Description:
The family of this 113-nucleotide sequence from Thetidibacter halocola is "TPP riboswitch aptamer (THI element)".

RNA sequence: CGCCUCACCUCGGGGUGGUGGCGCAUCAGCCGCCUGAGAUGUCCGUGACGCCGGACGAACCCGUCGAACCUGAACCGGUUAACACCGGCGGAGGGAAGGUUGUGCGGUCUCCG
Numbered sequence: 001c002g003c004c005u006c007a008c009c010u011c012g013g014g015g016u017g018g019u020g021g022c023g024c025a026u027c028a029g030c031c032g033c034c035u036g037a038g039a040u041g042u043c044c045g046u047g048a049c050g051c052c053g054g055a056c057g058a059a060c061c062c063g064u065c066g067a068a069c070c071u072g073a074a075c076c077g078g079u080u081a082a083c084a085c086c087g088g089c090g091g092a093g094g095g096a097a098g099g100u101u102g103u104g105c106g107g108u109c110u111c112c113g
Base pairs, nucleotide, nucleotide: 007100008099009098010097011063012062013061014060016057017034018033019032020031021030041056042055043054044053045052069094070093071092075088076087077086078085

From the family's description: Vitamin B(1) in its active form thiamin pyrophosphate (TPP) is an essential coenzyme that is synthesised by coupling of pyrimidine and thiazole moieties in bacteria. The previously detected thiamin-regulatory element, thi box was extended, resulting in a new, highly conserved RNA secondary structure, the THI element, which is widely distributed in eubacteria and also occurs in some archaea. Analysis of operon structures identified a large number of new candidate thiamin-regulated genes, mostly transporters, in various prokaryotic organisms.